[Rfam]
RNA: Small Cajal body specific RNA 16
RNA sequence: AAGACCCAAAGAGAGAGGUUUGAUGGAUACAUCCCAUUUAGCAAACCCCAAAUUUGAACUAGAGUAAAUUUCCAGGGGAACAUCUUACCUGGGAUCAGAACUUACAAGUAAGAGAUGUGAACAUUAUAGCAGCGGUUUGAUGAUCAUGCAUGAUACUGAAAAUAGGA
Numbered sequence: 001a002a003g004a005c006c007c008a009a010a011g012a013g014a015g016a017g018g019u020u021u022g023a024u025g026g027a028u029a030c031a032u033c034c035c036a037u038u039u040a041g042c043a044a045a046c047c048c049c050a051a052a053u054u055u056g057a058a059c060u061a062g063a064g065u066a067a068a069u070u071u072c073c074a075g076g077g078g079a080a081c082a083u084c085u086u087a088c089c090u091g092g093g094a095u096c097a098g099a100a101c102u103u104a105c106a107a108g109u110a111a112g113a114g115a116u117g118u119g120a121a122c123a124u125u126a127u128a129g130c131a132g133c134g135g136u137u138u139g140a141u142g143a144u145c146a147u148g149c150a151u152g153a154u155a156c157u158g159a160a161a162a163u164a165g166g167a
Stems, first nucleotide, its partner, number of pairs: 003059001006056001008054002015048001017046001019045003022038005071093003075089002078086002102161002105158002108156003113151001118146003122142004128137003